[Rfam]
Shown here is a 235-nucleotide RNA sequence from Pelotomaculum propionicicum, a member of the family "c-di-AMP riboswitch aptamer (ydaO/yuaA leader)". Taxonomically the source falls in Pelotomaculum (Bacteria, Bacillota, Clostridia, Eubacteriales). It scores 85 bits against the family's covariance model.

RNA sequence: UUGAAAAAAUCGCUUAAUUCUUCACCAGAAGAAGCGGGGGACCCAAUUACCGGGGUGAAUCAUUUCAGUAGUCAGUAGUCAGUAGUCAGUAGUCAGAACUUAAGAAGGAAAUCGUCUAAGACGAUUUCCAAAAGAAUCUGACAACCGACAACCCACAACCUACUACCGAUUUGUAGGGUUAAUUCUUUCGGCCCGAAUCCGUCAGCUAACCUCGUAAGCGUUGAAAGAAGGAUGA
Numbered sequence: 001u002u003g004a005a006a007a008a009a010u011c012g013c014u015u016a017a018u019u020c021u022u023c024a025c026c027a028g029a030a031g032a033a034g035c036g037g038g039g040g041a042c043c044c045a046a047u048u049a050c051c052g053g054g055g056u057g058a059a060u061c062a063u064u065u066c067a068g069u070a071g072u073c074a075g076u077a078g079u080c081a082g083u084a085g086u087c088a089g090u091a092g093u094c095a096g097a098a099c100u101u102a103a104g105a106a107g108g109a110a111a112u113c114g115u116c117u118a119a120g121a122c123g124a125u126u127u128c129c130a131a132a133a134g135a136a137u138c139u140g141a142c143a144a145c146c147g148a149c150a151a152c153c154c155a156c157a158a159c160c161u162a163c164u165a166c167c168g169a170u171u172u173g174u175a176g177g178g179u180u181a182a183u184u185c186u187u188u189c190g191g192c193c194c195g196a197a198u199c200c201g202u203c204a205g206c207u208a209a210c211c212u213c214g215u216a217a218g219c220g221u222u223g224a225a226a227g228a229a230g231g232a233u234g235a
Base pairs, nucleotide, nucleotide: 011220012219013218014217018033019032020031021030022029023028034215035214036213037212038211039210044052053200054199055198061173062172176194177193178192179191
Dot-bracket structure: ..........((((...((((((....))))))((((((....(.......)(((.....((.............................................................................................................))..((((...........))))...))).........)))))).))))...............